RNA sequence: GCUAGUGUUAAUCUCGCACUUGGAGCACCCAUACGAGUACGUCCUCGGUUACUCACCACAACUGCUUCGGGAAGGUCUGAGAUUAAGCUGUCCUGCCGUUUGGUGGGAAAUGCCUCAGCAAGGCGCUUUCUUGAACGAAGGGUUUCGUUACCAGAAAAAGUACUGUGAGUACAUUUAGCUGCUUUCAGGUGGUCCCACUGCACCGCACUCCCAAAUUGCAUACUCGGUUGUGGCAGAUGGAUUGUCAAGAAUGCAACAGCUGUUUUCUUGGUUGUUAUAUUAUUUACCGGGAUCUCGUUCUCGGUGAAUAAUAGUAAUUACCGAGACUCGUUGAAGUUUGGGCCGUAAUGGGUAAACUAUUACAUUGCUUCAACUUCGAAUCUCAGCUAUUGGAUUUUCGGCAAUCUGUUCACCACAGUCUAAGAUGGAAUUUAGGAGUGAUUCAGUUGCGAAUAUGCUGUUCAAAAGGUUUUCUUAUUGGAGAGCUUCUUCGCCACGGAUAUUGGUUGUCAAACCAAGUGUGGAACGACCAUCAGCCUUCCGGUCAGGCUUGCGUAGGUUAGUCCACGGACUGGCUUGUUCAUGCCGUGGCUGAAUGGCGUUGGCCUGAAACUGAUAAUUGAGAAAGCGAACUGCUAGCAUUUUUAGUACAAUCUGCGAGCUAUAAGUCAUCCCUGGCUUGUAGAACUCAAUUCAGACUAGUCUAACACUAGC
Numbered sequence: 001g002c003u004a005g006u007g008u009u010a011a012u013c014u015c016g017c018a019c020u021u022g023g024a025g026c027a028c029c030c031a032u033a034c035g036a037g038u039a040c041g042u043c044c045u046c047g048g049u050u051a052c053u054c055a056c057c058a059c060a061a062c063u064g065c066u067u068c069g070g071g072a073a074g075g076u077c078u079g080a081g082a083u084u085a086a087g088c089u090g091u092c093c094u095g096c097c098g099u100u101u102g103g104u105g106g107g108a109a110a111u112g113c114c115u116c117a118g119c120a121a122g123g124c125g126c127u128u129u130c131u132u133g134a135a136c137g138a139a140g141g142g143u144u145u146c147g148u149u150a151c152c153a154g155a156a157a158a159a160g161u162a163c164u165g166u167g168a169g170u171a172c173a174u175u176u177a178g179c180u181g182c183u184u185u186c187a188g189g190u191g192g193u194c195c196c197a198c199u200g201c202a203c204c205g206c207a208c209u210c211c212c213a214a215a216u217u218g219c220a221u222a223c224u225c226g227g228u229u230g231u232g233g234c235a236g237a238u239g240g241a242u243u244g245u246c247a248a249g250a251a252u253g254c255a256a257c258a259g260c261u262g263u264u265u266u267c268u269u270g271g272u273u274g275u276u277a278u279a280u281u282a283u284u285u286a287c288c289g290g291g292a293u294c295u296c297g298u299u300c301u302c303g304g305u306g307a308a309u310a311a312u313a314g315u316a317a318u319u320a321c322c323g324a325g326a327c328u329c330g331u332u333g334a335a336g337u338u339u340g341g342g343c344c345g346u347a348a349u350g351g352g353u354a355a356a357c358u359a360u361u362a363c364a365u366u367g368c369u370u371c372a373a374c375u376u377c378g379a380a381u382c383u384c385a386g387c388u389a390u391u392g393g394a395u396u397u398u399c400g401g402c403a404a405u406c407u408g409u410u411c412a413c414c415a416c417a418g419u420c421u422a423a424g425a426u427g428g429a430a431u432u433u434a435g436g437a438g439u440g441a442u443u444c445a446g447u448u449g450c451g452a453a454u455a456u457g458c459u460g461u462u463c464a465a466a467a468g469g470u471u472u473u474c475u476u477a478u479u480g481g482a483g484a485g486c487u488u489c490u491u492c493g494c495c496a497c498g499g500a501u502a503u504u505g506g507u508u509g510u511c512a513a514a515c516c517a518a519g520u521g522u523g524g525a526a527c528g529a530c531c532a533u534c535a536g537c538c539u540u541c542c543g544g545u546c547a548g549g550c551u552u553g554c555g556u557a558g559g560u561u562a563g564u565c566c567a568c569g570g571a572c573u574g575g576c577u578u579g580u581u582c583a584u585g586c587c588g589u590g591g592c593u594g595a596a597u598g599g600c601g602u603u604g605g606c607c608u609g610a611a612a613c614u615g616a617u618a619a620u621u622g623a624g625a626a627a628g629c630g631a632a633c634u635g636c637u638a639g640c641a642u643u644u645u646u647a648g649u650a651c652a653a654u655c656u657g658c659g660a661g662c663u664a665u666a667a668g669u670c671a672u673c674c675c676u677g678g679c680u681u682g683u684a685g686a687a688c689u690c691a692a693u694u695c696a697g698a699c700u701a702g703u704c705u706a707a708c709a710c711u712a713g714c
Stems, first nucleotide, its partner, number of pairs: 001714004008707003013661006022068005035054005040048001077697005086637003111125005126141005144632006164618002662685009
RNA: Nuclear RNase P
Organism: Aedes aegypti